[Rfam]
RNA sequence: UGUCUCCUCCACCCUCCUCCUUUGGUGGAUUCAAACCCAAGCUUGAUGGCUUGGGUUUUUUUUC
Numbered sequence: 001u002g003u004c005u006c007c008u009c010c011a012c013c014c015u016c017c018u019c020c021u022u023u024g025g026u027g028g029a030u031u032c033a034a035a036c037c038c039a040a041g042c043u044u045g046a047u048g049g050c051u052u053g054g055g056u057u058u059u060u061u062u063u064c
Stems, first nucleotide, its partner, number of pairs: 008029006034057008
Rfam assigns this 64-nucleotide RNA sequence from Ralstonia pickettii to the family "Betaproteobacteria toxic small RNA". The source organism's lineage runs through Bacteria, Pseudomonadota, Burkholderiales, Burkholderiaceae and Ralstonia pickettii. The sequence is in the family's curated seed alignment. Overexpression in amino aid rich medium attenuates growth, suggesting role in repressing amino acid intake and metabolism.